[Rfam]
About this RNA
The record is a 179-nucleotide RNA from Rubellimicrobium roseum, which matches "Ruegeria cis52 sRNA" in Rfam. A reference for the family is Rivers et al. (2016), "Experimental Identification of Small Non-Coding RNAs in the Model Marine Bacterium Ruegeria pomeroyi DSS-3", Front Microbiol. Rfam links the family to the GO term regulation of gene expression. The match comes from Rfam's covariance-model search (119 bits).
RNA sequence: UCCUCAGCGCGUGGCGGAUCACGACCUGCGGGAAGCUCACGCCCUUGAGGCGGGCGGUGCGGAUGUAUUGGGAGGUCAUGACCUCGGCCAUCGAGGCGCGGGUCAUCCGGGCGAUGUAGCCCAUGCCGUACAGCGCGAUGGUCAGGACGGGCAGGGUGAAGUUCACGAAGGUCGCGUCC
Numbered sequence: 001u002c003c004u005c006a007g008c009g010c011g012u013g014g015c016g017g018a019u020c021a022c023g024a025c026c027u028g029c030g031g032g033a034a035g036c037u038c039a040c041g042c043c044c045u046u047g048a049g050g051c052g053g054g055c056g057g058u059g060c061g062g063a064u065g066u067a068u069u070g071g072g073a074g075g076u077c078a079u080g081a082c083c084u085c086g087g088c089c090a091u092c093g094a095g096g097c098g099c100g101g102g103u104c105a106u107c108c109g110g111g112c113g114a115u116g117u118a119g120c121c122c123a124u125g126c127c128g129u130a131c132a133g134c135g136c137g138a139u140g141g142u143c144a145g146g147a148c149g150g151g152c153a154g155g156g157u158g159a160a161g162u163u164c165a166c167g168a169a170g171g172u173c174g175c176g177u178c179c
Base pairs, nucleotide, nucleotide: 004141005140006139008137009136010135011134012133014131017127020125021124030121031120038113040111042109046105047104048103051100052099054097055075058072060070061069062068082096083095084094085093086092145179146178147177150173151172152171155164156163
Dot-bracket structure: ...(((.(((((.(..(..((........((......(.(.(...(((..((.((..(.(((.....))).)..)......(((((.....)))))).))..)))...).).)......))..)).)...).))))).)))...(((..(((..((......))......)))...)))